[Rfam]
RNA sequence: CCCGCCGAGGGGCGCUGCGACCGGGUGACCGCCAAUGCGGGCCGCCGGCCAGGCUCGGCGAGCGGCUCUCCAUGCAGCAACGGCGCCCGGUCUGC
Numbered sequence: 001c002c003c004g005c006c007g008a009g010g011g012g013c014g015c016u017g018c019g020a021c022c023g024g025g026u027g028a029c030c031g032c033c034a035a036u037g038c039g040g041g042c043c044g045c046c047g048g049c050c051a052g053g054c055u056c057g058g059c060g061a062g063c064g065g066c067u068c069u070c071c072a073u074g075c076a077g078c079a080a081c082g083g084c085g086c087c088c089g090g091u092c093u094g095c
Stems, first nucleotide, its partner, number of pairs: 003060006021048004